[Rfam]
RNA sequence: CAUGAAAAACAGGGGAGCCGAAAGGCUGAGAGGAAGCGCCGCUUCGACCCUUUUACCUGAUGUGGGUAAUGCCACCGUAGGAAGUUUUCAUGGAAGCUCC
Numbered sequence: 001c002a003u004g005a006a007a008a009a010c011a012g013g014g015g016a017g018c019c020g021a022a023a024g025g026c027u028g029a030g031a032g033g034a035a036g037c038g039c040c041g042c043u044u045c046g047a048c049c050c051u052u053u054u055a056c057c058u059g060a061u062g063u064g065g066g067u068a069a070u071g072c073c074a075c076c077g078u079a080g081g082a083a084g085u086u087u088u089c090a091u092g093g094a095a096g097c098u099c100c
Base pairs, nucleotide, nucleotide: 006088007087008086009085010084011051012050013049014048017026018025019024033045034044035043036042037041056081057080058079059078062075063074064073065072
Overview: TPP riboswitch aptamer (THI element): a 100-nucleotide RNA sequence from Oscillibacter sp. 1-3. From the family's description: Vitamin B(1) in its active form thiamin pyrophosphate (TPP) is an essential coenzyme that is synthesised by coupling of pyrimidine and thiazole moieties in bacteria.